Overview:
This 70-nucleotide RNA from Brassica carinata belongs to the Rfam family "Small Cajal body specific RNA ncR26".

RNA sequence: UUUGAAAAACCGGAGAUUGAUGCGCCACUAAUGACAGAUUUUGUUUGAUUACUGAGGGCUUUUUGUUUAU
Numbered sequence: 001u002u003u004g005a006a007a008a009a010c011c012g013g014a015g016a017u018u019g020a021u022g023c024g025c026c027a028c029u030a031a032u033g034a035c036a037g038a039u040u041u042u043g044u045u046u047g048a049u050u051a052c053u054g055a056g057g058g059c060u061u062u063u064u065g066u067u068u069a070u
Stems, first nucleotide, its partner, number of pairs: 013067002019063002022060001024059003030049001032048001034044003
Lineage of the source: Eukaryota > Streptophytina > Spermatophyta > Magnoliopsida > Brassica.
Gene Ontology terms of the family: RNA processing, nucleolus and Cajal body.